[Rfam]
RNA sequence: UUGUUUUCUGAUGUGGCAUCAUCAAGAUUCACGUACAAAAUGCAAAAGCCUUUCGAAAACGAGAAUCUUGAUGAUGCUGCAUCGGCAAUAAA
Numbered sequence: 001u002u003g004u005u006u007u008c009u010g011a012u013g014u015g016g017c018a019u020c021a022u023c024a025a026g027a028u029u030c031a032c033g034u035a036c037a038a039a040a041u042g043c044a045a046a047a048g049c050c051u052u053u054c055g056a057a058a059a060c061g062a063g064a065a066u067c068u069u070g071a072u073g074a075u076g077c078u079g080c081a082u083c084g085g086c087a088a089u090a091a092a
Stems, first nucleotide, its partner, number of pairs: 010083021032061002
Dot-bracket structure: .........(((((((((((((((((((((.((..........................)).))))))))))))))))))))).........
RNA: mir-172 microRNA precursor family
Organism: Mikania micrantha